[Rfam]
The record is a 112-nucleotide sequence from Cavia porcellus, which matches "Vault RNA" in Rfam. This family of RNAs are found as part of the enigmatic vault ribonucleoprotein complex. The complex consists of a major vault protein (MVP), two minor vault proteins (VPARP and TEP1), and several small untranslated RNA molecules. It has been suggested that the vault complex is involved in drug resistance. Rfam 15.1 lists 2,873 matches to the family in 431 species. Rfam classes the family as a non-coding RNA gene. NCBI's taxonomy places the organism under Eukaryota, Opisthokonta, Sarcopterygii, Mammalia, Cavia.
RNA sequence: GGGCUGGCUUUAGCCCAGCGAUUCCUUCGACUUUGGCUUCCCAACCGCCUUGGCCACUGGCUUCCAUUCGUCCUGUGGUUUGAGACCCGCCCUGGUGCUCUCCAGUCCUUUA
Numbered sequence: 001g002g003g004c005u006g007g008c009u010u011u012a013g014c015c016c017a018g019c020g021a022u023u024c025c026u027u028c029g030a031c032u033u034u035g036g037c038u039u040c041c042c043a044a045c046c047g048c049c050u051u052g053g054c055c056a057c058u059g060g061c062u063u064c065c066a067u068u069c070g071u072c073c074u075g076u077g078g079u080u081u082g083a084g085a086c087c088c089g090c091c092c093u094g095g096u097g098c099u100c101u102c103c104a105g106u107c108c109u110u111u112a
Stems, first nucleotide, its partner, number of pairs: 002107006013096003018090003026084005